RNA sequence: GGGCAAGAUAGGUGAAGUUAGCUAACCUGUGGACAGGUCAUCUAUCUUCACUGACCUUAUUCGCGCUCCGCUCUCAACGGUAUCUUGUCCUGCCGGGCA
Dot-bracket structure: (((((((((..((((((.(((...(((((....)))))...))).))))))...((......(.((...)).).....)).))))))))).........
RNA: traJ-II RNA
Organism: Methyloglobulus morosus